The record is a 471-nucleotide part of an RNA from Lynx canadensis, which matches "Eukaryotic large subunit ribosomal RNA" in Rfam.
It scores 2192 bits against the family's covariance model.
The family's consensus secondary structure is taken from published work.
[Rfam]
RNA sequence: GGUAGUAGCAAAUAUUCAAACGAGAACUUUGAAGGCCGAAGUGGAGAAGGGUUCCAUGUGAACAGCAGUUGAACAUGGGUCAGUCGGUCCUGAGAGAUGGGCGAGCGCCGUUCCGAAGGGACGGGCGAUGGCCUCCGUUGCCCUCAGCCGAUCGAAAGGGAGUCGGGUUCAGAUCCCCGAAUCCGGAGUGGCGGAGAUGGGCAUCAUGAGGUGACCAGUGCAGUAAUACAACCCAUCCAGGAGAAGCCAGCAGGAGCCCUGGGGAGACCUCUCUUUUCUUUGUAAGUGCAGGGUGCUCUGGAAUGGGUUACCCUGGAGAGAAGGACCCGGACCUUGGAAAGCAUCACGGUUCUGGCUGGCAUGGGUGAGCUCUCGCUGGCCCUUGAAAAUCCGGGGGAGAGGGUGUAAAUCUCGCGCCGGGCCGUACCCAUAUCCGCAGCAGGUCUCCAAGGUGAACAGCCUCUGGCAUGU
Numbered sequence: 001g002g003u004a005g006u007a008g009c010a011a012a013u014a015u016u017c018a019a020a021c022g023a024g025a026a027c028u029u030u031g032a033a034g035g036c037c038g039a040a041g042u043g044g045a046g047a048a049g050g051g052u053u054c055c056a057u058g059u060g061a062a063c064a065g066c067a068g069u070u071g072a073a074c075a076u077g078g079g080u081c082a083g084u085c086g087g088u089c090c091u092g093a094g095a096g097a098u099g100g101g102c103g104a105g106c107g108c109c110g111u112u113c114c115g116a117a118g119g120g121a122c123g124g125g126c127g128a129u130g131g132c133c134u135c136c137g138u139u140g141c142c143c144u145c146a147g148c149c150g151a152u153c154g155a156a157a158g159g160g161a162g163u164c165g166g167g168u169u170c171a172g173a174u175c176c177c178c179g180a181a182u183c184c185g186g187a188g189u190g191g192c193g194g195a196g197a198u199g200g201g202c203a204u205c206a207u208g209a210g211g212u213g214a215c216c217a218g219u220g221c222a223g224u225a226a227u228a229c230a231a232c233c234c235a236u237c238c239a240g241g242a243g244a245a246g247c248c249a250g251c252a253g254g255a256g257c258c259c260u261g262g263g264g265a266g267a268c269c270u271c272u273c274u275u276u277u278c279u280u281u282g283u284a285a286g287u288g289c290a291g292g293g294u295g296c297u298c299u300g301g302a303a304u305g306g307g308u309u310a311c312c313c314u315g316g317a318g319a320g321a322a323g324g325a326c327c328c329g330g331a332c333c334u335u336g337g338a339a340a341g342c343a344u345c346a347c348g349g350u351u352c353u354g355g356c357u358g359g360c361a362u363g364g365g366u367g368a369g370c371u372c373u374c375g376c377u378g379g380c381c382c383u384u385g386a387a388a389a390u391c392c393g394g395g396g397g398a399g400a401g402g403g404u405g406u407a408a409a410u411c412u413c414g415c416g417c418c419g420g421g422c423c424g425u426a427c428c429c430a431u432a433u434c435c436g437c438a439g440c441a442g443g444u445c446u447c448c449a450a451g452g453u454g455a456a457c458a459g460c461c462u463c464u465g466g467c468a469u470g471u
Stems, first nucleotide, its partner, number of pairs: 015033006034469001035467003043448004049428002054078006063071002085424003089159002094153002096112003100109003120145002163180005183420004207414005212408001219230002222227001237395002240392003246380004251375001253373005259365002263281005286335001288333001296324002299321001304316001306314002344358001347355001434443002450462004